[Rfam]
RNA sequence: UGUACGCGUCGCGACUGGCGUAUUGACGGACGAUUCCGGCGGGCUCGCAGCUCGCGGAUGACCCGGCUCAGAUGGGGCACCAUCGGGGAGCGACGCUGACCCUCAGCAUUGAGGCGGAUUCGGCCGCACGCCUGGGCCGAUACG
Numbered sequence: 001u002g003u004a005c006g007c008g009u010c011g012c013g014a015c016u017g018g019c020g021u022a023u024u025g026a027c028g029g030a031c032g033a034u035u036c037c038g039g040c041g042g043g044c045u046c047g048c049a050g051c052u053c054g055c056g057g058a059u060g061a062c063c064c065g066g067c068u069c070a071g072a073u074g075g076g077g078c079a080c081c082a083u084c085g086g087g088g089a090g091c092g093a094c095g096c097u098g099a100c101c102c103u104c105a106g107c108a109u110u111g112a113g114g115c116g117g118a119u120u121c122g123g124c125c126g127c128a129c130g131c132c133u134g135g136g137c138c139g140a141u142a143c144g
Stems, first nucleotide, its partner, number of pairs: 003099001006096007015087002017132005072083004121139005
RNA: ZMP/ZTP riboswitch aptamer (pfl RNA motif)